RNA sequence: UGCAGAGUAGGGAUGGUGCGCUUAAGUGCCAAAGGAUGGGAAGUCGCCUUUGGACGAAUGACGUUGUCAGUGGUGCCAUACCCGCUUCCGCUGCC
Numbered sequence: 001u002g003c004a005g006a007g008u009a010g011g012g013a014u015g016g017u018g019c020g021c022u023u024a025a026g027u028g029c030c031a032a033a034g035g036a037u038g039g040g041a042a043g044u045c046g047c048c049u050u051u052g053g054a055c056g057a058a059u060g061a062c063g064u065u066g067u068c069a070g071u072g073g074u075g076c077c078a079u080a081c082c083c084g085c086u087u088c089c090g091c092u093g094c095c
Stems, first nucleotide, its partner, number of pairs: 002094004010083003013079006019072003026055002029053007039089005059069004
Rfam assigns this 95-nucleotide RNA sequence from Eubacterium aggregans to the family "THF (Tetrahydrofolate) riboswitch aptamer". Rfam 15.1 lists 747 matches to the family in 747 species. The match comes from Rfam's covariance-model search (66 bits). From the family's description: Tetrahydrofolate (THF) riboswitch was first reported for Ames et al. as an RNA motif in 5' untranslated (5'-UTR)regions of folate transport and biosynthesis genes in Firmicutes genomes. The family's consensus secondary structure is taken from published work.